[Rfam]
RNA: Lysine riboswitch aptamer
RNA sequence: CGAUGGGGUAGAGGAGCAGUUUUUAAAAGUACGCUGUGUGAGGAUGACAACAAAGAUCACAGUUGAAAGGAAAAGCUGCCGAAAUAGCGAAUGUAUGUCAAAGGCGUCGCUAUUGGGGUUAUCUUAAACAAGGAUAACACUCUCAUUGCGUAAAUUUACUUUUACGUUAUGAGGAGCUACAGAUCGU
Numbered sequence: 001c002g003a004u005g006g007g008g009u010a011g012a013g014g015a016g017c018a019g020u021u022u023u024u025a026a027a028a029g030u031a032c033g034c035u036g037u038g039u040g041a042g043g044a045u046g047a048c049a050a051c052a053a054a055g056a057u058c059a060c061a062g063u064u065g066a067a068a069g070g071a072a073a074a075g076c077u078g079c080c081g082a083a084a085u086a087g088c089g090a091a092u093g094u095a096u097g098u099c100a101a102a103g104g105c106g107u108c109g110c111u112a113u114u115g116g117g118g119u120u121a122u123c124u125u126a127a128a129c130a131a132g133g134a135u136a137a138c139a140c141u142c143u144c145a146u147u148g149c150g151u152a153a154a155u156u157u158a159c160u161u162u163u164a165c166g167u168u169a170u171g172a173g174g175a176g177c178u179a180c181a182g183a184u185c186g187u
Stems, first nucleotide, its partner, number of pairs: 008180004016079009033063006083114008094103001115141002118138008143172004148167006